[Rfam]
RNA sequence: CGGCUGUAGCUAUAUCCAUAUUGAGAGAAGUUUUAGUGGCCGCUUGUCGUUUAUUCCUGUCGACAAAUCUGCUUACCGAACUUCUCACAUUU
Numbered sequence: 001c002g003g004c005u006g007u008a009g010c011u012a013u014a015u016c017c018a019u020a021u022u023g024a025g026a027g028a029a030g031u032u033u034u035a036g037u038g039g040c041c042g043c044u045u046g047u048c049g050u051u052u053a054u055u056c057c058u059g060u061c062g063a064c065a066a067a068u069c070u071g072c073u074u075a076c077c078g079a080a081c082u083u084c085u086c087a088c089a090u091u092u
Stems, first nucleotide, its partner, number of pairs: 025086008038073003042069001044067002046064004